[Rfam]
RNA sequence: UAAAAAUAUAAAGCGCCAGGACUAGAUCGUACAGAGCGAACUAAUGAGUAAAACUAAACUCAGGUCGCUAUAGAUUUAGUUGACGAGGUGGAGGUUCAUCGAGAUUGUUCGGCGGAUGCCUCCCGGUUGUUACAUCUCAACCGCACGUUUUGAAUGGAAAACAAAGAGGUGACUCUUUGCACAAAUAUUCAAGACAAGAUGAAA
Numbered sequence: 001u002a003a004a005a006a007u008a009u010a011a012a013g014c015g016c017c018a019g020g021a022c023u024a025g026a027u028c029g030u031a032c033a034g035a036g037c038g039a040a041c042u043a044a045u046g047a048g049u050a051a052a053a054c055u056a057a058a059c060u061c062a063g064g065u066c067g068c069u070a071u072a073g074a075u076u077u078a079g080u081u082g083a084c085g086a087g088g089u090g091g092a093g094g095u096u097c098a099u100c101g102a103g104a105u106u107g108u109u110c111g112g113c114g115g116a117u118g119c120c121u122c123c124c125g126g127u128u129g130u131u132a133c134a135u136c137u138c139a140a141c142c143g144c145a146c147g148u149u150u151u152g153a154a155u156g157g158a159a160a161a162c163a164a165a166g167a168g169g170u171g172a173c174u175c176u177u178u179g180c181a182c183a184a185a186u187a188u189u190c191a192a193g194a195c196a197a198g199a200u201g202a203a204a
Base pairs, nucleotide, nucleotide: 020081021080022079023078024077025076026075027074028073090123091122092121093120094119099112100111101110102109124143125142126141127140128139129138148194149193150192151191152190153189154188162179163178164177165176166175167174168173